RNA sequence: ACAGUUACGCCGUUUGUAGCUGUAAAGCCCACGGUUGUGGGGCGUAUCAACAGGUAGAAGGAAUAUAUCGAUG
Numbered sequence: 001a002c003a004g005u006u007a008c009g010c011c012g013u014u015u016g017u018a019g020c021u022g023u024a025a026a027g028c029c030c031a032c033g034g035u036u037g038u039g040g041g042g043c044g045u046a047u048c049a050a051c052a053g054g055u056a057g058a059a060g061g062a063a064u065a066u067a068u069c070g071a072u073g
Stems, first nucleotide, its partner, number of pairs: 002022008027043003030039002